[Rfam]
RNA sequence: GUGCGUGUGGGUUCCUGGCACGGUGAUUUGUGUUGUUGUAAUGAAAAUCACAUUGCCAGGGAUUACCACGUGAAC
Numbered sequence: 001g002u003g004c005g006u007g008u009g010g011g012u013u014c015c016u017g018g019c020a021c022g023g024u025g026a027u028u029u030g031u032g033u034u035g036u037u038g039u040a041a042u043g044a045a046a047a048u049c050a051c052a053u054u055g056c057c058a059g060g061g062a063u064u065a066c067c068a069c070g071u072g073a074a075c
Stems, first nucleotide, its partner, number of pairs: 001075002004072003008068003011063010023051007